[Rfam]
Nucleotides: 091
Stems, first nucleotide, its partner, number of pairs: 025053004031047004057079005062073004
Number, partner (000 for none) and nucleotide at each position: 001000g002000g003000g004000u005000u006000c007000u008000u009000g010000c011000a012000u013000c014000g015000c016000c017000c018000g019000g020000c021000g022000c023000c024000g025053g026052g027051u028050g029000a030000g031047c032046g033045u034044a035000u036000g037000g038000a039000u040000g041000g042000a043000u044034u045033g046032c047031g048000c049000u050028c051027a052026c053025u054000c055000a056000u057079g058078g059077g060076g061075u062073a063072g064071u065070c066000g067000c068000a069000c070065g071064a072063u073062u074000c075061g076060c077059c078058c079057c080000g081000g082000u083000c084000g085000u086000g087000g088000a089000g090000g091000u
This 91-nucleotide sequence from Streptomyces sp. ATexAB-D23 belongs to the Rfam family "NLPC-P60 RNA". Taxonomically the source falls in Streptomyces (Bacteria, Actinomycetota, Actinomycetes, Kitasatosporales).